Nucleotides: 087
Stems, first nucleotide, its partner, number of pairs: 002087001007082008016074006
Number, partner (000 for none) and nucleotide at each position: 001000a002087c003000g004000u005000u006000g007082u008081g009080u010079g011078a012077c013076a014075u015000g016074c017073c018072c019071g020070u021069u022000u023000c024000g025000a026000u027000g028000a029000u030000a031000u032000a033000c034000u035000c036000u037000g038000a039000u040000a041000u042000u043000u044000a045000u046000u047000u048000a049000a050000u051000a052000u053000u054000u055000c056000a057000u058000u059000g060000u061000u062000u063000u064000g065000g066000g067000a068000u069021a070020a071019c072018g073017g074016g075014g076013u077012g078011u079010u080009a081008c082007a083000a084000u085000u086000g087002g
Rfam assigns this 87-nucleotide sequence from Medicago truncatula to the family "MIR2617 microRNA precursor family". Pairs were carried over by alignment from the consensus structure, which was predicted with RNAalifold. Its family is annotated with miRNA-mediated post-transcriptional gene silencing and RISC complex in the Gene Ontology. Taxonomically the source falls in Medicago (Eukaryota, Tracheophyta, Gunneridae, Trifolieae).